[Rfam]
RNA sequence: UGGUAAUGUCUCCUGACCGUUAUCAACUGGAGAUACUCGGCCAUGCUGUGGGCUUAACAAGCCUUAGAUGCGAGUCAUCAGUGGUGUGGCGUGAGGAUGGGUUGAAUGCCCA
Numbered sequence: 001u002g003g004u005a006a007u008g009u010c011u012c013c014u015g016a017c018c019g020u021u022a023u024c025a026a027c028u029g030g031a032g033a034u035a036c037u038c039g040g041c042c043a044u045g046c047u048g049u050g051g052g053c054u055u056a057a058c059a060a061g062c063c064u065u066a067g068a069u070g071c072g073a074g075u076c077a078u079c080a081g082u083g084g085u086g087u088g089g090c091g092u093g094a095g096g097a098u099g100g101g102u103u104g105a106a107u108g109c110c111c112a
Base pairs, nucleotide, nucleotide: 001019002018003017004016007035008034009033010032011031012030013029036095037094038093039092040090041089042088043087044086045085046084047083050064051063052062053061054060067079068078069077070076098112099111100110101109102108
Dot-bracket structure: [[[[..(((((((..]]]].........)))))))((((((((((((..(((((.....)))))..((((.....))))...)))))))).))))..(((((.....)))))

Rfam assigns this 112-nucleotide sequence from Alteribacter lacisalsi to the family "epsC RNA". A search with the family's covariance model found it, with a score of 105 bits. Lineage of the source: Bacteria > Bacillota > Bacilli > Caryophanales > Alteribacter. It is annotated as a cis-regulatory element.